[Rfam]
RNA: Small nucleolar RNA snoR2/U65
RNA sequence: GGCUCAAUGCCACGUCGCCGGUAGCUCAAAGAGCAUUGACCGGCGAUGCUAUGAUUGGGCCAAGAUCGAUUUCUGUGUUUCGCAUCUUGAUAGGAACCUGUGGAUCUUUUUUACUGGUUUUCCACGGAGCCGUUUUGUGCGAUUACAUAU
Number, nucleotide and partner (000 for none) at each position: 001g000002g060003c059004u058005c057006a056007a055008u054009g052010c000011c000012a000013c048014g047015u046016c045017g044018c043019c000020g041021g040022u039023a000024g034025c033026u032027c000028a000029a000030a000031g000032a026033g025034c024035a000036u000037u000038g000039a022040c021041c020042g000043g018044c017045g016046a015047u014048g013049c000050u000051a000052u009053g000054a008055u007056u006057g005058g004059g003060c002061c000062a000063a000064g000065a000066u000067c000068g000069a000070u000071u000072u000073c000074u000075g000076u000077g000078u000079u000080u142081c141082g140083c139084a138085u000086c000087u000088u000089g000090a000091u000092a000093g131094g130095a000096a000097c000098c127099u126100g125101u000102g123103g122104a121105u000106c000107u000108u000109u000110u000111u000112u000113a000114c000115u000116g000117g000118u000119u000120u000121u104122c103123c102124a000125c100126g099127g098128a000129g000130c094131c093132g000133u000134u000135u000136u000137g000138u084139g083140c082141g081142a080143u000144u000145a000146c000147a000148u000149a000150u000